[Rfam]
RNA sequence: AGGUCAUUUCAGAGAGAGCUAAUGAGACCAAAACCAGGAGCUCUUCACACUGUGACCUAAGGUUUAAGUCCUCCAUAGGAUGUAAUUGACAACAGUGCUAUGUUCUCCUGAGGAGACAGAAGA
Numbered sequence: 001a002g003g004u005c006a007u008u009u010c011a012g013a014g015a016g017a018g019c020u021a022a023u024g025a026g027a028c029c030a031a032a033a034c035c036a037g038g039a040g041c042u043c044u045u046c047a048c049a050c051u052g053u054g055a056c057c058u059a060a061g062g063u064u065u066a067a068g069u070c071c072u073c074c075a076u077a078g079g080a081u082g083u084a085a086u087u088g089a090c091a092a093c094a095g096u097g098c099u100a101u102g103u104u105c106u107c108c109u110g111a112g113g114a115g116a117c118a119g120a121a122g123a
Base pairs, nucleotide, nucleotide: 002057003056004055005054006053007052014045015044016043017042018041019040020039023037026035071115072114073113074112077109078108079107080106085101086100088098090097091096

A member of the RNA family "Small nucleolar RNA SNORA25" from Pipistrellus kuhlii, 123 nucleotides long. The base pairs follow the family's consensus structure, which was predicted with RNAfold. Rfam 15.1 lists 1,129 matches to the family in 449 species. From the family's description: ACA25 is a member of the H/ACA class of snoRNA that guide the sites of modification of uridines to pseudouridines. Gene Ontology terms of the family: nucleolus and RNA processing.